Small nucleolar RNA snoR8a: a 90-nucleotide sequence from Cuscuta australis. The source organism's lineage runs through Eukaryota, eudicotyledons, Pentapetalae, Cuscuta and Cuscuta sect. Cleistogrammica. On this family, see Brown et al., RNA 2001: "Multiple snoRNA gene clusters from Arabidopsis". It scores 95 bits against the family's covariance model.
[Rfam]
RNA sequence: AGUGGUGCGAUGAUUAUAAAAAAAUUCCUCGUUCUGAAAGCCGUUGCCACGGCAUGAAAGACCCAUUUACACCCAUAGAAUAUGAGCACA
Number, nucleotide and partner (000 for none) at each position: 001a000002g000003u090004g089005g000006u088007g087008c000009g000010a000011u000012g000013a000014u000015u000016a000017u000018a000019a000020a000021a000022a000023a000024a000025u000026u000027c000028c000029u000030c000031g000032u000033u000034c000035u000036g000037a000038a000039a000040g000041c000042c000043g000044u000045u000046g000047c000048c000049a000050c000051g000052g000053c000054a000055u000056g000057a000058a000059a000060g000061a000062c000063c000064c000065a000066u000067u000068u000069a000070c000071a000072c000073c000074c000075a000076u000077a000078g000079a000080a000081u000082a000083u000084g000085a000086g000087c007088a006089c004090a003